[Rfam]
RNA sequence: GGCCUCCCUCUCUGGGGCGAUCAAUCACAGGGCCCCUAGAUUGAUCGCCCCGCAGAGGGAGGCC
Numbered sequence: 001g002g003c004c005u006c007c008c009u010c011u012c013u014g015g016g017g018c019g020a021u022c023a024a025u026c027a028c029a030g031g032g033c034c035c036c037u038a039g040a041u042u043g044a045u046c047g048c049c050c051c052g053c054a055g056a057g058g059g060a061g062g063c064c
Stems, first nucleotide, its partner, number of pairs: 001064011013052014030035001

Rfam assigns this 64-nucleotide RNA sequence from Myotis brandtii to the family "mir-9242 microRNA precursor family". A search with the family's covariance model found it, with a score of 67 bits.